Shown here is a 100-nucleotide RNA from Nocardiopsis algeriensis, a member of the family "Glycine riboswitch aptamer".
Its Rfam clan is "Glycine riboswitch clan".
Taxonomically the source falls in Nocardiopsis (Bacteria, Actinomycetes, Streptosporangiales, Nocardiopsidaceae).
A search with the family's covariance model found it, with a score of 64 bits.

RNA sequence: UGACCCCGUACGGGAGAGCGCCCGUGCGAACGCGUGGGCCGCCGAAGGAGCAAUCCCUCCCCGAAACAACCUCUCAGGCACAGUGGACCGUACGGGCGAG
Numbered sequence: 001u002g003a004c005c006c007c008g009u010a011c012g013g014g015a016g017a018g019c020g021c022c023c024g025u026g027c028g029a030a031c032g033c034g035u036g037g038g039c040c041g042c043c044g045a046a047g048g049a050g051c052a053a054u055c056c057c058u059c060c061c062c063g064a065a066a067c068a069a070c071c072u073c074u075c076a077g078g079c080a081c082a083g084u085g086g087a088c089c090g091u092a093c094g095g096g097c098g099a100g
Stems, first nucleotide, its partner, number of pairs: 006095008020039007041079003044075002048073003054066001